[Rfam]
RNA sequence: AAGCUACACUCUGUGUCAAAAGUUGGAAACAACAGUGAUUUGGCUCAAUUUAAGCUUGCCACAGUAAAAUACAGCCUGACCUAUUCCAGCAAACUCUUGUCAGUUAUGUUUGCUGUUAUAUAGGCUGUUACAUU
Dot-bracket structure: ........((.((.(.((((..................)))).).)).....)).................(((((((...(((..((((....(.(........).)...))))..)))))))))).......

A member of the RNA family "Small nucleolar RNA SNORA28" from Megalops atlanticus, 134 nucleotides long. A reference for the family is Huttenhofer et al. (2001), "RNomics: an experimental approach that identifies 201 candidates for novel, small, non-messenger RNAs in mouse", EMBO J. Its family is annotated with RNA processing and nucleolus in the Gene Ontology. The source organism's lineage runs through Eukaryota, Craniata, Gnathostomata, Neopterygii and Megalops. About the family: ACA28 is a member of the H/ACA class of snoRNA that guide the sites of modification of uridines to pseudouridines.